[Rfam]
RNA: SAH (S-adenosyl-L-homocysteine) riboswitch aptamer
Organism: Rhizobacter sp. Root404
Nucleotides: 089
Stems, first nucleotide, its partner, number of pairs: 003049006021037006
Number, partner (000 for none) and nucleotide at each position: 001000u002000c003049g004048c005047c006046c007045g008044a009000g010000g011000a012000g013000c014000g015000u016000u017000g018000c019000g020000a021037c022036a023035g024034u025033c026032g027000a028000u029000c030000g031000a032026c033025g034024a035023c036022u037021g038000c039000c040000a041000g042000g043000c044008u045007c046006g047005g048004g049003c050000a051000c052000g053000g054000u055000g056000g057000c058000g059000c060000a061000a062000g063000c064000c065000g066000c067000u068000g069000g070000u071000u072000c073000a074000a075000c076000g077000g078000c079000g080000c081000u082000c083000a084000c085000c086000c087000g088000a089000c